RNA: Bacterial RNase P class A
RNA sequence: CCAGACGGUCGGAUGGUCGCUCUCAUGCAAUGGGGAAACCCGCAUGGGGGAGGAAAGUCCGGGCUCCACGGAAGUACGGUGCCGGGUAACGCCCGGCGGGGGCGACCCCAGGGAAAGUGCCACAGAGAGCAGACCGCCGACGCCAGUAACCCCUUGGGACUACUGGAUUUCGGUAAGGGUGAAAGGGUGCGGUAAAAGCGCACCGCGACCCUGGCGACAGGGUUGGCAUGGUAAACCCCACCGGGAGCAAAACCGAAUAGGGACGGCAUGGGCGGCAACGCCCAGGCGCACUUCCGCGCUGUCGUCCGGGUGGGUUGCGCGAGGUGUCCAGCAAUGGGCAUCCCAGAGGAAUGACCAUCCCCCGGAUACCAUCCACAGGUGGGAUAUGGUCCGGUGGACAGAACCCGGCUUACAGACCGUCUGGCUCU
Numbered sequence: 001c002c003a004g005a006c007g008g009u010c011g012g013a014u015g016g017u018c019g020c021u022c023u024c025a026u027g028c029a030a031u032g033g034g035g036a037a038a039c040c041c042g043c044a045u046g047g048g049g050g051a052g053g054a055a056a057g058u059c060c061g062g063g064c065u066c067c068a069c070g071g072a073a074g075u076a077c078g079g080u081g082c083c084g085g086g087u088a089a090c091g092c093c094c095g096g097c098g099g100g101g102g103c104g105a106c107c108c109c110a111g112g113g114a115a116a117g118u119g120c121c122a123c124a125g126a127g128a129g130c131a132g133a134c135c136g137c138c139g140a141c142g143c144c145a146g147u148a149a150c151c152c153c154u155u156g157g158g159a160c161u162a163c164u165g166g167a168u169u170u171c172g173g174u175a176a177g178g179g180u181g182a183a184a185g186g187g188u189g190c191g192g193u194a195a196a197a198g199c200g201c202a203c204c205g206c207g208a209c210c211c212u213g214g215c216g217a218c219a220g221g222g223u224u225g226g227c228a229u230g231g232u233a234a235a236c237c238c239c240a241c242c243g244g245g246a247g248c249a250a251a252a253c254c255g256a257a258u259a260g261g262g263a264c265g266g267c268a269u270g271g272g273c274g275g276c277a278a279c280g281c282c283c284a285g286g287c288g289c290a291c292u293u294c295c296g297c298g299c300u301g302u303c304g305u306c307c308g309g310g311u312g313g314g315u316u317g318c319g320c321g322a323g324g325u326g327u328c329c330a331g332c333a334a335u336g337g338g339c340a341u342c343c344c345a346g347a348g349g350a351a352u353g354a355c356c357a358u359c360c361c362c363c364g365g366a367u368a369c370c371a372u373c374c375a376c377a378g379g380u381g382g383g384a385u386a387u388g389g390u391c392c393g394g395u396g397g398a399c400a401g402a403a404c405c406c407g408g409c410u411u412a413c414a415g416a417c418c419g420u421c422u423g424g425c426u427c428u
Stems, first nucleotide, its partner, number of pairs: 001424010011413001012359007020050009055411003059408005064247004073293002077243005082096005097111001098109004112238002117236002119232003134178002136174005142168001144166001186204006205227001206225008251316004261307006285300005323342008